[Rfam]
A member of the RNA family "Selenocysteine insertion sequence 1" from Scyliorhinus torazame, 64 nucleotides long.
By type it is a cis-regulatory element.
Gene Ontology term of the family: selenocysteine incorporation.
Rfam 15.1 lists 3,793 matches to the family in 721 species.
About the family: The incorporation of selenocysteine into a protein sequence is directed by an in-frame UGA codon (usually a stop codon) within the coding region of the mRNA. Selenoprotein mRNAs contain a conserved secondary structure in the 3' UTR that is required for the distinction of UGA stop from UGA selenocysteine. The selenocysteine insertion sequence (SECIS) is around 60 nt in length and adopts a hairpin structure which is sufficiently well-defined and conserved to act as a computational screen for selenoprotein genes.
RNA sequence: GCCAGUUCAUGAUGACUUGUUUAUAAACCCAUAUUGUGGGAGAAAUUGGUCUGAUGAUGCUGAU
Numbered sequence: 001g002c003c004a005g006u007u008c009a010u011g012a013u014g015a016c017u018u019g020u021u022u023a024u025a026a027a028c029c030c031a032u033a034u035u036g037u038g039g040g041a042g043a044a045a046u047u048g049g050u051c052u053g054a055u056g057a058u059g060c061u062g063a064u
Base pairs, nucleotide, nucleotide: 001064003062004061005060014051015050016049017048019046020045021044022043029039030038031037